[Rfam]
RNA: Streptomyces RNA 3202
Organism: Streptomyces coelicolor
RNA sequence: CCACGUCCCGACGCACUCCCCCCGGCGCCGGGACUUCCCGAGCCGGGCUCGGCUGCCCCUACCCCCCUGGGGCGCCGCAGCCCGGCUCCUUC
Numbered sequence: 001c002c003a004c005g006u007c008c009c010g011a012c013g014c015a016c017u018c019c020c021c022c023c024g025g026c027g028c029c030g031g032g033a034c035u036u037c038c039c040g041a042g043c044c045g046g047g048c049u050c051g052g053c054u055g056c057c058c059c060u061a062c063c064c065c066c067c068u069g070g071g072g073c074g075c076c077g078c079a080g081c082c083c084g085g086c087u088c089c090u091u092c
Base pairs, nucleotide, nucleotide: 005034006033007032008031009030010029012027013026014025040088041087042086043085044084045083046082047081048080049079050077051076052075053074055073056072057071058070059069